RNA sequence: CAGGUUCCGGUUCACGUCCGAUAUUCAGCACCACAGGGCGACCCGGCGACC
Numbered sequence: 001c002a003g004g005u006u007c008c009g010g011u012u013c014a015c016g017u018c019c020g021a022u023a024u025u026c027a028g029c030a031c032c033a034c035a036g037g038g039c040g041a042c043c044c045g046g047c048g049a050c051c
Stems, first nucleotide, its partner, number of pairs: 003051003007046004015040005
Dot-bracket structure: ..(((.((((....(((((................)))))..))))..)))